[Rfam]
Nucleotides: 070
Base pairs, nucleotide, nucleotide: 003068004067006065007064008063009062010061011060012059016055017054018053019052020051021050022049024047025046026045027044
Number, partner (000 for none) and nucleotide at each position: 001000a002000g003068u004067a005000g006065a007064g008063a009062g010061a011060a012059u013000a014000g015000a016055c017054g018053c019052u020051g021050u022049g023000c024047u025046g026045u027044a028000u029000g030000u031000u032000u033000u034000g035000c036000g037000u038000a039000u040000g041000g042000u043000c044027u045026a046025u047024a048000u049022c050021a051020c052019a053018g054017u055016g056000g057000c058000u059012g060011u061010u062009c063008u064007u065006u066000u067004u068003g069000u070000a
A member of the RNA family "mir-6 microRNA precursor family" from Drosophila virilis, 70 nucleotides long. The organism belongs to Drosophila, within Eukaryota. This family consists of the microRNA (miRNA) precursor mir-6 which appears to be Drosophila specific. Animal miRNAs are transcribed as ~70nt precursors and subsequently processed by the Dicer enzyme to give a ~22nt product. In this case the mature sequence comes from the 3' arm of the precursor. The extents of the hairpin precursors are not generally known and are estimated based on hairpin prediction. The sequence is in the family's curated seed alignment. The literature on the family includes a 2002 paper in Genes Dev by Mourelatos et al., "miRNPs: a novel class of ribonucleoproteins containing numerous microRNAs".